[Rfam]
RNA sequence: GAUCAAGAACUGCGCUCAGGCUUUCGAUCCGUCGUUGGCCACGGCGGCAGACUUGCCUGAUGAGCGGCAGGGAAUCGUUACGGGGCCACUUGUCCGAUGGUCCCAUACAGCGCAGAUC
Numbered sequence: 001g002a003u004c005a006a007g008a009a010c011u012g013c014g015c016u017c018a019g020g021c022u023u024u025c026g027a028u029c030c031g032u033c034g035u036u037g038g039c040c041a042c043g044g045c046g047g048c049a050g051a052c053u054u055g056c057c058u059g060a061u062g063a064g065c066g067g068c069a070g071g072g073a074a075u076c077g078u079u080a081c082g083g084g085g086c087c088a089c090u091u092g093u094c095c096g097a098u099g100g101u102c103c104c105a106u107a108c109a110g111c112g113c114a115g116a117u118c
Stems, first nucleotide, its partner, number of pairs: 007118002010115007025077004029047007052071006082104003086100003
Dot-bracket structure: ......((.(((((((........(((((((((((.....)))))))....((((((........))))))..))))....(((.(((.........))).)))....))))))).))